The record is a 444-nucleotide part of an RNA from Scardovia inopinata, which matches "Bacterial large subunit ribosomal RNA" in Rfam. Rfam's curators put it in the seed alignment. The organism belongs to Scardovia inopinata, within Bacteria.
RNA sequence: CUCUCCGAAAUGCAUUUAGGUGCAGCGUUACCAGGUCGCUUGCUGGGGGUAGAGCUACUGGAUGCCGACGGGCCCAUGGUGGGUACUAACGGCAACCAAACUCCGAAUACCAGUAGGUGUGUGGUGGCAGUGAGUCAGCGGGGGAUAAGCUCCGUUGUCGAAAGGGAAACAGCCCAGAUCGUCGUUUAAGGUCCCUAAGCGUGUGCUAAGUGGGAAAGGAUGUGGAGUCGCAUGGACAGCCAGGAGGUUGGCUUAGAAGCAGCCAUCCUUGAAAGAGUGCGUAACAGCUCACUGGUCUAGUGGUUCCGCGCCGACAAUGUAGCGGGGCUCAAGCACACCACCGAAGACGCGGCAAUCAGCUUGAAGGCUGGUUGGGUAGGAGAGCGUUCCCUGCUGGGGUGAAGCAUGAGUGGAAGCUUGUGUGGACUGUAGGGAAGUGAGAAU
Number, nucleotide and partner (000 for none) at each position: 001c384002u383003c382004u381005c380006c379007g000008a000009a000010a000011u024012g023013c022014a021015u020016u000017u000018a000019g000020g015021u014022g013023c012024a011025g000026c130027g128028u127029u126030a125031c124032c123033a122034g000035g000036u000037c121038g118039c117040u116041u115042g114043c113044u112045g111046g110047g000048g000049g000050u000051a000052g104053a102054g101055c000056u000057a000058c000059u098060g097061g096062a000063u094064g093065c092066c091067g000068a000069c000070g087071g086072g084073c083074c082075c081076a080077u000078g000079g000080u076081g075082g074083g073084u072085a000086c071087u070088a000089a000090c000091g066092g065093c064094a063095a000096c061097c060098a059099a000100a000101c054102u053103c000104c052105g000106a000107a000108u000109a000110c046111c045112a044113g043114u042115a041116g040117g039118u038119g000120u000121g037122u033123g032124g031125u030126g029127g028128c027129a000130g026131u000132g000133a000134g159135u000136c157137a156138g155139c154140g153141g152142g151143g150144g000145a000146u000147a000148a000149g000150c143151u142152c141153c140154g139155u138156u137157g136158u000159c134160g000161a000162a000163a000164g175165g174166g173167a000168a000169a000170c000171a000172g000173c166174c165175c164176a000177g000178a000179u352180c351181g350182u349183c000184g348185u347186u346187u000188a000189a000190g342191g341192u340193c000194c000195c000196u000197a000198a000199g339200c000201g338202u337203g336204u335205g334206c333207u000208a000209a000210g000211u000212g000213g000214g000215a000216a000217a000218g312219g311220a000221u000222g309223u308224g307225g306226a305227g304228u303229c302230g301231c300232a000233u000234g000235g000236a000237c000238a000239g296240c295241c294242a293243g292244g000245a269246g268247g267248u000249u000250g264251g263252c262253u000254u000255a000256g000257a000258a000259g000260c000261a000262g252263c251264c250265a000266u000267c247268c246269u245270u274271g000272a000273a000274a270275g290276a000277g000278u000279g288280c287281g000282u000283a000284a000285c000286a000287g280288c279289u000290c275291a000292c243293u242294g241295g240296u239297c000298u000299a000300g231301u230302g229303g228304u227305u226306c225307c224308g223309c222310g000311c219312c218313g000314a000315c000316a000317a000318u000319g000320u000321a000322g000323c000324g000325g000326g000327g000328c000329u000330c000331a000332a000333g206334c205335a204336c203337a202338c201339c199340a192341c191342c190343g000344a000345a000346g186347a185348c184349g182350c181351g180352g179353c374354a373355a372356u371357c370358a369359g368360c367361u000362u000363g000364a000365a000366g000367g360368c359369u358370g357371g356372u355373u354374g353375g000376g000377u000378a000379g006380g005381a004382g003383a002384g001385c439386g000387u436388u435389c434390c433391c432392u431393g430394c000395u429396g428397g427398g000399g000400u000401g000402a000403a000404g423405c422406a421407u420408g419409a418410g417411u416412g000413g000414a000415a000416g411417c410418u409419u408420g407421u406422g405423u404424g000425g000426a000427c397428u396429g395430u393431a392432g391433g390434g389435a388436a387437g000438u000439g385440a000441g000442a000443a000444u000